[Rfam]
This 92-nucleotide sequence from Neobacillus bataviensis belongs to the Rfam family "Selenocysteine transfer RNA". The match comes from Rfam's covariance-model search (57 bits).

RNA sequence: GGGAGGGAAUGGGGACUGGUGUCCUCCACAGUCUUCAAAACUGCUUGAGACCUGCGUGCCAGGUCUGCUGGGUUCGAUUCCCAGGCGGUCCC
Numbered sequence: 001g002g003g004a005g006g007g008a009a010u011g012g013g014g015a016c017u018g019g020u021g022u023c024c025u026c027c028a029c030a031g032u033c034u035u036c037a038a039a040a041c042u043g044c045u046u047g048a049g050a051c052c053u054g055c056g057u058g059c060c061a062g063g064u065c066u067g068c069u070g071g072g073u074u075c076g077a078u079u080c081c082c083a084g085g086c087g088g089u090c091c092c
Stems, first nucleotide, its partner, number of pairs: 001092004007086001011026006028045001029043004048066005069083004

The organism belongs to Neobacillus bataviensis, within Bacteria.
The family's consensus secondary structure is taken from published work.